[Rfam]
A member of the RNA family "mir-2060 microRNA precursor family" from Branchiostoma floridae, 85 nucleotides long.
Rfam links the family to the GO terms RISC complex and miRNA-mediated post-transcriptional gene silencing.
NCBI's taxonomy places the organism under Eukaryota, Metazoa, Bilateria, Branchiostomatidae, Branchiostoma.
The family's consensus secondary structure was predicted with RNAalifold.
RNA sequence: UUGUGUGUGGAUGGUGUUCAGCACAAUGGACAGUCAUUUUUUGUUUGUGAAUUAUGUUCAGCACCAAGGACAGGCAUGUUUUGUC
Numbered sequence: 001u002u003g004u005g006u007g008u009g010g011a012u013g014g015u016g017u018u019c020a021g022c023a024c025a026a027u028g029g030a031c032a033g034u035c036a037u038u039u040u041u042u043g044u045u046u047g048u049g050a051a052u053u054a055u056g057u058u059c060a061g062c063a064c065c066a067a068g069g070a071c072a073g074g075c076a077u078g079u080u081u082u083g084u085c
Base pairs, nucleotide, nucleotide: 001073002072003071004070012066013065014064015063016062017061018060020058021057022056023055025053026052028046030044031043032042033041